[Rfam]
RNA sequence: UGAUCCCGUGCGGGAGAGUCCCUCGCAGCCGGCGGGGGACGCCGAAGGAGCAACACUCCUCCCCGGAACCUCUCAGGCCCACGGACCGCGCGGGUUAG
Numbered sequence: 001u002g003a004u005c006c007c008g009u010g011c012g013g014g015a016g017a018g019u020c021c022c023u024c025g026c027a028g029c030c031g032g033c034g035g036g037g038g039a040c041g042c043c044g045a046a047g048g049a050g051c052a053a054c055a056c057u058c059c060u061c062c063c064c065g066g067a068a069c070c071u072c073u074c075a076g077g078c079c080c081a082c083g084g085a086c087c088g089c090g091c092g093g094g095u096u097a098g
Base pairs, nucleotide, nucleotide: 006093007092008091009090010089011088012087013086019039020038021037022036023035024034041078042077043076044074045073048072049071050070054065

Description: The family of this 98-nucleotide RNA sequence from Actinomadura hallensis is "Glycine riboswitch aptamer".